[Rfam]
A member of the RNA family "int-alpA RNA" from Ancylobacter tetraedralis, 68 nucleotides long. The family's RNA type in Rfam is small RNA. It scores 38 bits against the family's covariance model.
RNA sequence: CGCGGGGAUAGGCCGACGGGCCGACAAGCCGAGACGCACCGCUCGGUUUCCCUGCGUCCCCCACGGUG
Dot-bracket structure: ((((((((..((((....)))).....(((((..........))))).))))))))............